[Rfam]
RNA: Small nucleolar RNA SNORA32
RNA sequence: UGGUCAUUACCAAGGCUUUUAGAAUGUGGUUUCUGAUUGCUGUGGACAUGACCAUAAAAAAUUACCCAAGAGGUUUAUAUUUGCUAAUAUUAUUAGCAUUUAACCUAUUGGGAACAGUU
Number, nucleotide and partner (000 for none) at each position: 001u000002g000003g052004u051005c050006a049007u048008u000009a000010c045011c044012a043013a000014g000015g000016c000017u000018u000019u000020u000021a000022g000023a000024a000025u000026g040027u039028g038029g037030u000031u000032u000033c000034u000035g000036a000037u029038u028039g027040c026041u000042g000043u012044g011045g010046a000047c000048a007049u006050g005051a004052c003053c000054a000055u000056a000057a000058a000059a000060a000061a000062u000063u000064a000065c112066c111067c110068a109069a000070g000071a000072g105073g104074u103075u102076u000077a000078u000079a000080u000081u000082u098083g097084c096085u000086a000087a000088u000089a000090u000091u000092a000093u000094u000095a000096g084097c083098a082099u000100u000101u000102a075103a074104c073105c072106u000107a000108u000109u068110g067111g066112g065113a000114a000115c000116a000117g000118u000119u000